[Rfam]
Background: The family of this 74-nucleotide RNA sequence from Photinus pyralis is "mir-11 microRNA precursor family". On this family, see Marco et al., Genome Biol Evol 2010: "Functional shifts in insect microRNA evolution". Pairs were carried over by alignment from the consensus structure, which was predicted with RNAalifold.

RNA sequence: AAUGCGGUCUGGGGCUCCGUCUGUGAUUUGUGUGUUUUUUGGAUCACAUCACAGGCAGAGUUCUAGGUCUGCGU
Numbered sequence: 001a002a003u004g005c006g007g008u009c010u011g012g013g014g015c016u017c018c019g020u021c022u023g024u025g026a027u028u029u030g031u032g033u034g035u036u037u038u039u040u041g042g043a044u045c046a047c048a049u050c051a052c053a054g055g056c057a058g059a060g061u062u063c064u065a066g067g068u069c070u071g072c073g074u
Base pairs, nucleotide, nucleotide: 006069009066010065011064012063013062014061015060016059017058021054022053023052024051025050026049030047031046032045